[Rfam]
RNA: Purine riboswitch aptamer
Organism: Streptococcus pyogenes
Nucleotides: 096
Stems, first nucleotide, its partner, number of pairs: 018082008029046006056071005
Number, partner (000 for none) and nucleotide at each position: 001000u002000g003000a004000a005000u006000u007000c008000a009000a010000u011000a012000a013000u014000g015000a016000c017000a018082u019081a020080c021079u022078u023077a024076u025075u026000u027000a028000u029046g030045c031044u032043g033042u034041g035000a036000a037000u038000u039000g040000g041034c042033g043032c044031a045030g046029c047000g048000u049000c050000u051000c052000u053000a054000c055000a056071a057070g058069a059068c060067a061000c062000c063000u064000u065000a066000a067060u068059g069058u070057c071056u072000a073000a074000c075025a076024a077023u078022a079021a080020g081019u082018a083000a084000g085000c086000u087000u088000u089000u090000a091000g092000g093000c094000u095000u096000g